[Rfam]
RNA sequence: UUGCCUUAAACUAAUGAGUAAGGAAAACAAAGCGGUACGGUGAGAGCCGCUCGUGAUGCGGGGGUCAAAACCCCGCACGACAAUUUUUGCAGGGGAAAAGAGGCUGGCGCGGGCACGGACACUGCUUACUUUUGCAGGACCUGUCUGUGUAGGCCUCCCC
Numbered sequence: 001u002u003g004c005c006u007u008a009a010a011c012u013a014a015u016g017a018g019u020a021a022g023g024a025a026a027a028c029a030a031a032g033c034g035g036u037a038c039g040g041u042g043a044g045a046g047c048c049g050c051u052c053g054u055g056a057u058g059c060g061g062g063g064g065u066c067a068a069a070a071c072c073c074c075g076c077a078c079g080a081c082a083a084u085u086u087u088u089g090c091a092g093g094g095g096a097a098a099a100g101a102g103g104c105u106g107g108c109g110c111g112g113g114c115a116c117g118g119a120c121a122c123u124g125c126u127u128a129c130u131u132u133u134g135c136a137g138g139a140c141c142u143g144u145c146u147g148u149g150u151a152g153g154c155c156u157c158c159c160c
Stems, first nucleotide, its partner, number of pairs: 004023005032059003036055004060076001062074003093160003101156002110147002113144003117140001122137004
Dot-bracket structure: ...(((((..........)))))........(((.((((............)))).)))(.(((.......))).)................(((.....((.......((.(((.(....((((........))))..).))).)).......)).)))
Source information:
The record is a 160-nucleotide sequence from Triticum aestivum, which matches "U12 minor spliceosomal RNA" in Rfam. NCBI's taxonomy places the organism under Eukaryota, Embryophyta, Petrosaviidae, Triticinae, Triticum. Rfam classes the family as a spliceosomal small nuclear RNA. The match comes from Rfam's covariance-model search (76 bits).